[Rfam]
This 148-nucleotide RNA sequence from Occallatibacter riparius belongs to the Rfam family "Group II catalytic intron D1-D4-7". For this family Rfam cites "Group II introns: structure and catalytic versatility of large natural ribozymes" (Lehmann and Schmidt, Crit Rev Biochem Mol Biol, 2003). Lineage of the source: Bacteria > Pseudomonadati > Acidobacteriota > Acidobacteriaceae > Occallatibacter. Rfam links the family to the GO term Group II intron splicing. From the family's description: Group II introns are found in rRNA, tRNA and mRNA of organelles in fungi, plants and protists, and also in mRNA in bacteria.
RNA sequence: CCUGCCGUCCCAUCGGCAGUACCCCAGGAGGUCAAGCGGUUCGGUAACGAGCCGUUGAAAGCCCUCUGACAAUGUAACCGCAGCCGCAAGGUUGCUGAUCGAGUCGCGAGACAAGGUCAGGUCUGCCAGCAUCGUGGCGGACAGGGGC
Dot-bracket structure: .((((((......)))))).......(((((((((.(((((((....)))))))))))....)))))............((((((....))))))((((....((....))....))))..((((((........)))))).......